Shown here is an 82-nucleotide sequence from Mesorhabditis belari, a member of the family "mir-2763 microRNA precursor family".
The family's consensus secondary structure was predicted with RNAalifold.
[Rfam]
RNA sequence: GCCAAGUUUAAAGAGAUAAGAAACCAAAUUUAUAGAGAAACCUAUCUCUAUAAAUUUGGUUGCUUAUCUCUUUAAACUUGGU
Numbered sequence: 001g002c003c004a005a006g007u008u009u010a011a012a013g014a015g016a017u018a019a020g021a022a023a024c025c026a027a028a029u030u031u032a033u034a035g036a037g038a039a040a041c042c043u044a045u046c047u048c049u050a051u052a053a054a055u056u057u058g059g060u061u062g063c064u065u066a067u068c069u070c071u072u073u074a075a076a077c078u079u080g081g082u
Stems, first nucleotide, its partner, number of pairs: 002081005007075002010073011022061001024059005031054001033052002037046002
Rfam 15.1 lists 59 matches to the family in 43 species.